This 139-nucleotide RNA from Laceyella tengchongensis belongs to the Rfam family "FMN riboswitch aptamer (RFN element)". Lineage of the source: Bacteria > Bacillati > Bacillota > Bacilli > Laceyella.

RNA sequence: UGCAUCCUUCGGGGCAGGGUGAAAAUCCCGACCGGCGGUGAUGGGGCAAAUUGGCCCCUUAGCCCGUGACCCGCACGCGUGCGGUGGAUUCGGUGAAAUUCCGGAGCCGACAGUAUAGUCUGGAUGGGAGAAGGAUGAA
Dot-bracket structure: ..((((((((......(((.......))).[[((((((.......................[[))))...((..........))....(((((.......)))))]])).(((....]]))).......))))))))..